[Rfam]
RNA: GA-cis RNA
Organism: Butyrivibrio fibrisolvens
RNA sequence: GAGGGGAGGAACCAUCAUGACGAAGUCAUGAUUUGGAAUGGUUCCGACCGAUAUGGCAGGACUUUUGAGCAGUCCUGCCAUUACAUAAU
Numbered sequence: 001g002a003g004g005g006g007a008g009g010a011a012c013c014a015u016c017a018u019g020a021c022g023a024a025g026u027c028a029u030g031a032u033u034u035g036g037a038a039u040g041g042u043u044c045c046g047a048c049c050g051a052u053a054u055g056g057c058a059g060g061a062c063u064u065u066u067g068a069g070c071a072g073u074c075c076u077g078c079c080a081u082u083a084c085a086u087a088a089u
Stems, first nucleotide, its partner, number of pairs: 008045006015031006055079003059075001062072002